[Rfam]
RNA: SL2 RNA
Organism: Panagrolaimus davidi
RNA sequence: GGUUUAAUUACCCAAAGUUUGAGGUAAAUAUUAAAUUCCGCUCACUUUUAAAAGUGUGGCAAAAAUUAAAUAAAUUUUGGAACGCUUUUUCUUUUUUUAAAGAAAGAGCAAA
Numbered sequence: 001g002g003u004u005u006a007a008u009u010a011c012c013c014a015a016a017g018u019u020u021g022a023g024g025u026a027a028a029u030a031u032u033a034a035a036u037u038c039c040g041c042u043c044a045c046u047u048u049u050a051a052a053a054g055u056g057u058g059g060c061a062a063a064a065a066u067u068a069a070a071u072a073a074a075u076u077u078u079g080g081a082a083c084g085c086u087u088u089u090u091c092u093u094u095u096u097u098u099a100a101a102g103a104a105a106g107a108g109c110a111a112a
Stems, first nucleotide, its partner, number of pairs: 007037001009033002015029001018026001040060003043056005087110001089108006095101002